[Rfam]
RNA sequence: GUCGGGGUGACGGCGGAACACAAGACGCGCAAGCGGAAUACGUCGUGCCUGUCUCACAGCAGGUUCUUAACACCCCGGCGCCAGCCC
Numbered sequence: 001g002u003c004g005g006g007g008u009g010a011c012g013g014c015g016g017a018a019c020a021c022a023a024g025a026c027g028c029g030c031a032a033g034c035g036g037a038a039u040a041c042g043u044c045g046u047g048c049c050u051g052u053c054u055c056a057c058a059g060c061a062g063g064u065u066c067u068u069a070a071c072a073c074c075c076c077g078g079c080g081c082c083a084g085c086c087c
Base pairs, nucleotide, nucleotide: 001079002078003077004076005075006074007073008072009071011045012044013043014042017039026035027034028033047064048063049062050061051060052059